[Rfam]
Nucleotides: 087
Stems, first nucleotide, its partner, number of pairs: 013071006020064003023060006032054004
Number, partner (000 for none) and nucleotide at each position: 001000g002000c003000c004000g005000u006000u007000g008000g009000c010000c011000g012000c013071c014070c015069a016068g017067u018066a019000g020064u021063c022062g023060g024059u025058g026057u027056a028055g029000g030000a031000u032054c033053u034052g035051u036000g037000c038000g039000a040000c041000c042000g043000u044000c045000c046000c047000g048000c049000u050000a051035a052034c053033a054032g055028c056027u057026a058025c059024a060023u061000c062022u063021g064020a065000u066018u067017a068016c069015u070014g071013g072000g073000u074000c075000a076000c077000c078000a079000a080000c081000g082000g083000g084000c085000c086000g087000g